[Rfam]
RNA sequence: GUCGGGAAGAGGAAGAAAGAGAGUCUAAGAGCAGUGGGAGUGGGAACAUGUUGCCUAACAUGUCUGUUUCCACUAACUAUGGGGUAGAAAACAUUGGUGCUUUCUGAUGCCUCCCAUUCCUAUUAUUCUUAGGGGCUCCUUCCUCUUCCCCGUGGCU
Numbered sequence: 001g002u003c004g005g006g007a008a009g010a011g012g013a014a015g016a017a018a019g020a021g022a023g024u025c026u027a028a029g030a031g032c033a034g035u036g037g038g039a040g041u042g043g044g045a046a047c048a049u050g051u052u053g054c055c056u057a058a059c060a061u062g063u064c065u066g067u068u069u070c071c072a073c074u075a076a077c078u079a080u081g082g083g084g085u086a087g088a089a090a091a092c093a094u095u096g097g098u099g100c101u102u103u104c105u106g107a108u109g110c111c112u113c114c115c116a117u118u119c120c121u122a123u124u125a126u127u128c129u130u131a132g133g134g135g136c137u138c139c140u141u142c143c144u145c146u147u148c149c150c151c152g153u154g155g156c157u
Base pairs, nucleotide, nucleotide: 009148010147011146012145013144015142016141017140021138022137023136024133025132026131027130028129029128030127031126033124035122036121037120038119039118040117041116042115043114044113045112047109048108049107053104
Dot-bracket structure: ........(((((.(((...(((((((((((.(.(((((((((((.(((...(..................................................)..)))..))))))))))).).))))))))..))).))).))))).........

The family of this 157-nucleotide RNA sequence from Panicum virgatum is "MIR2118 microRNA precursor family". Lineage of the source: Eukaryota > Spermatophyta > Liliopsida > Poaceae > Panicum sect. Hiantes. The literature on the family includes a 2009 paper in Nucleic Acids Res by Xue et al., "Characterization and expression profiles of miRNAs in rice seeds". Gene Ontology terms of the family: miRNA-mediated post-transcriptional gene silencing and RISC complex.